[Rfam]
Nucleotides: 129
Stems, first nucleotide, its partner, number of pairs: 001057005007051003011047001014041002017038002020036003066126001071120005082107009
Number, partner (000 for none) and nucleotide at each position: 001057u002056g003055u004054g005053u006000g007051u008050g009049u010000g011047u012000g013000u014041g015040u016000g017038u018037u019000c020036u021035g022034u023000u024000c025000a026000a027000c028000u029000g030000g031000u032000a033000g034022a035021c036020a037018a038017a039000g040015g041014c042000a043000a044000g045000a046000a047011a048000g049009a050008c051007a052000g053005a054004u055003g056002c057001a058000a059000a060000g061000a062000u063000u064000a065000a066126u067000c068000c069000u070000c071120u072119u073118u074117u075116a076000c077000a078000a079000c080000c081000c082107a083106g084105a085104g086103c087102u088101u089100a090099u091000u092000g093000u094000u095000c096000a097000g098000u099090a100089u101088g102087a103086g104085u105084u106083u107082u108000u109000a110000u111000g112000c113000a114000c115000a116075u117074g118073a119072g120071g121000a122000c123000u124000a125000u126066a127000a128000c129000a